RNA sequence: CGGGGCCAGGGAGGCACCGACGCCCCGGGUACGACCUGGUCGCCUGGAUCCGGGGUCGAGCCAGUGGCGAAACCGGCCCUGCUGAUC
Dot-bracket structure: .(..(.(((((.(((......((((((((........[[[[[[[....))))))))...)))...]]]]]..]]..))))).)..).
The family of this 87-nucleotide RNA sequence from Actinomarinicola tropica is "c-di-GMP-II-GAG riboswitch aptamer". For this family Rfam cites "Bioinformatic analysis of riboswitch structures uncovers variant classes with altered ligand specificity" (Weinberg et al., Proc Natl Acad Sci U S A, 2017). The base pairs follow the family's consensus structure, which is taken from published work. A search with the family's covariance model found it, with a score of 57 bits. Its Rfam clan is "c-di-GMP_II riboswitch clan".